[Rfam]
RNA sequence: CCUAUGGAGAAUACAAGAACUUGUGAGUAGAUAAGUAUUUACACUAUCCAAAGCAUAUUCGAUGAAGUAGGAA
Numbered sequence: 001c002c003u004a005u006g007g008a009g010a011a012u013a014c015a016a017g018a019a020c021u022u023g024u025g026a027g028u029a030g031a032u033a034a035g036u037a038u039u040u041a042c043a044c045u046a047u048c049c050a051a052a053g054c055a056u057a058u059u060c061g062a063u064g065a066a067g068u069a070g071g072a073a
Stems, first nucleotide, its partner, number of pairs: 001071005009060005022055003030048003035044002
Annotation:
The record is a 73-nucleotide sequence from Cylicocyclus nassatus, which matches "RAGATH-18 RNA" in Rfam. The family's consensus secondary structure is taken from published work. By type it is a small RNA. Taxonomically the source falls in Cylicocyclus (Eukaryota, Eumetazoa, Protostomia, Strongyloidea). Rfam describes the family as follows. Actinobacteria, Firmicutes, Fusobacteria, Thermotogae (1 example).